RNA sequence: UUCAUCGCGAGGUGUAAUCUGAAGGAAGUCUUCGGCAAAGAUCUGGCCUGACGAACAGAAACUUGAUACCAAGGCUCACGAGUGUGGAUUAGUUUGCAAUACAAAACAAAGUCCUAUAGCUGUUCGGAACACUUGGAGUAAAUCAAGCAGGUAUAAGAUUGAAAGAAUACGUC
Numbered sequence: 001u002u003c004a005u006c007g008c009g010a011g012g013u014g015u016a017a018u019c020u021g022a023a024g025g026a027a028g029u030c031u032u033c034g035g036c037a038a039a040g041a042u043c044u045g046g047c048c049u050g051a052c053g054a055a056c057a058g059a060a061a062c063u064u065g066a067u068a069c070c071a072a073g074g075c076u077c078a079c080g081a082g083u084g085u086g087g088a089u090u091a092g093u094u095u096g097c098a099a100u101a102c103a104a105a106a107c108a109a110a111g112u113c114c115u116a117u118a119g120c121u122g123u124u125c126g127g128a129a130c131a132c133u134u135g136g137a138g139u140a141a142a143u144c145a146a147g148c149a150g151g152u153a154u155a156a157g158a159u160u161g162a163a164a165g166a167a168u169a170c171g172u173c
Base pairs, nucleotide, nucleotide: 001016003014004013005012006011028173030171032169036165040160041159042158043157044156046152047151048150049149050148062147063146064145065144066143067142074139075138076137079135080134081133082132083131084130085129086114087113088112089111092107093106094105095104
Dot-bracket structure: (.((((....)))).)...........(.(.(...(...(((((.(((((...........((((((......(((..(((((((((((..((((........))))...))))..............))))))).)))..)))))))))))...)))))....)...).).)
A member of the RNA family "Group II catalytic intron D1-D4-3" from Macellibacteroides fermentans, 173 nucleotides long. Group II introns are found in rRNA, tRNA and mRNA of organelles in fungi, plants and protists, and also in mRNA in bacteria. Lineage of the source: Bacteria > Bacteroidota > Bacteroidia > Porphyromonadaceae > Macellibacteroides. A search with the family's covariance model found it, with a score of 145 bits. The family has 406 seed sequences and 4,274 matches in Rfam 15.1.